[Rfam]
Notes:
This 134-nucleotide RNA from Otolemur garnettii belongs to the Rfam family "Small nucleolar RNA SNORA64/SNORA10 family". The source organism's lineage runs through Eukaryota, Eumetazoa, Chordata, Gnathostomata and Otolemur. Rfam describes the family as follows. This family belongs to the H/ACA class of small nucleolar RNAs (snoRNAs) which act as guides in the the modification of uridines to pseudouridines. The base pairs follow the family's consensus structure, which is taken from published work. It is annotated as an H/ACA-box small nucleolar RNA. The literature on the family includes a 1999 paper in EMBO J by Narayanan et al., "Nucleolar localization signals of box H/ACA small nucleolar RNAs".
RNA sequence: ACUCUCUCAGGUCUGCAAAGUCACACUUGGUUUCAUCUGUGUGACUUUCAUAAUACCAAGAGAGAAGCAAAACUGCCUAAGGACCCCAGACUGCCCUUAUGGUAGCCUCUCUUUCCUUGAGUGGAAUAACAGAU
Numbered sequence: 001a002c003u004c005u006c007u008c009a010g011g012u013c014u015g016c017a018a019a020g021u022c023a024c025a026c027u028u029g030g031u032u033u034c035a036u037c038u039g040u041g042u043g044a045c046u047u048u049c050a051u052a053a054u055a056c057c058a059a060g061a062g063a064g065a066a067g068c069a070a071a072a073c074u075g076c077c078u079a080a081g082g083a084c085c086c087c088a089g090a091c092u093g094c095c096c097u098u099a100u101g102g103u104a105g106c107c108u109c110u111c112u113u114u115c116c117u118u119g120a121g122u123g124g125a126a127u128a129a130c131a132g133a134u
Stems, first nucleotide, its partner, number of pairs: 003065006014058002019046008073124004079118003088112003093107001095105001